Record summary: Rfam assigns this 117-nucleotide sequence from Methylotenera sp. to the family "Methylophilales-1 RNA". Taxonomically the source falls in Methylotenera (Bacteria, Pseudomonadota, Betaproteobacteria, Nitrosomonadales). It scores 98 bits against the family's covariance model.
RNA sequence: AGUUAGUGCAGUGAAUAAGGCAGUAAGCGGAAUGUUGUUGAUGAACAAACAAUUUUUUGCCGAUGAGUCGUCGUUGACCUAGUGCGACUCUGCCGCUAUAGAUUAGGCGCACUAACC
Numbered sequence: 001a002g003u004u005a006g007u008g009c010a011g012u013g014a015a016u017a018a019g020g021c022a023g024u025a026a027g028c029g030g031a032a033u034g035u036u037g038u039u040g041a042u043g044a045a046c047a048a049a050c051a052a053u054u055u056u057u058u059g060c061c062g063a064u065g066a067g068u069c070g071u072c073g074u075u076g077a078c079c080u081a082g083u084g085c086g087a088c089u090c091u092g093c094c095g096c097u098a099u100a101g102a103u104u105a106g107g108c109g110c111a112c113u114a115a116c117c
Stems, first nucleotide, its partner, number of pairs: 002116008019094004027060006065090006072084005
Notes:
The family's RNA type in Rfam is small RNA. The base pairs follow the family's consensus structure, which is taken from published work.